[Rfam]
RNA sequence: CCGCCCGUCGCUGUCCGGGACUGAGCUGUCUCGAGAGGACUGCGGACUACUGUAUUGAGGCCUUCGGGUCGCGAUAUAGCGGGAAACAGUUCAAUCGCAAUGGCUUGAACCGGGUAAAAGUCGUAACAAGGUAUCUGUAGGUGAACCUGCAGAUGGAUCAUCG
Numbered sequence: 001c002c003g004c005c006c007g008u009c010g011c012u013g014u015c016c017g018g019g020a021c022u023g024a025g026c027u028g029u030c031u032c033g034a035g036a037g038g039a040c041u042g043c044g045g046a047c048u049a050c051u052g053u054a055u056u057g058a059g060g061c062c063u064u065c066g067g068g069u070c071g072c073g074a075u076a077u078a079g080c081g082g083g084a085a086a087c088a089g090u091u092c093a094a095u096c097g098c099a100a101u102g103g104c105u106u107g108a109a110c111c112g113g114g115u116a117a118a119a120g121u122c123g124u125a126a127c128a129a130g131g132u133a134u135c136u137g138u139a140g141g142u143g144a145a146c147c148u149g150c151a152g153a154u155g156g157a158u159c160a161u162c163g
Base pairs, nucleotide, nucleotide: 001130003127006123007122009120012116013115014114015113016112017111018110021107023106024105025104026103027102028101029100032097033096034095037092038091039090040089041088042087047082048081050079051078052077053076054075055074056073057072059070060069061068062067132155133154134153135152136151137150138149139148140147141146
A member of the RNA family "Eukaryotic small subunit ribosomal RNA" from Angiostrongylus costaricensis, 163 nucleotides of a longer RNA. The base pairs follow the family's consensus structure, which is taken from published work. The family is grouped with related families in Rfam's "SSU clan". The organism belongs to Angiostrongylus, within Eukaryota.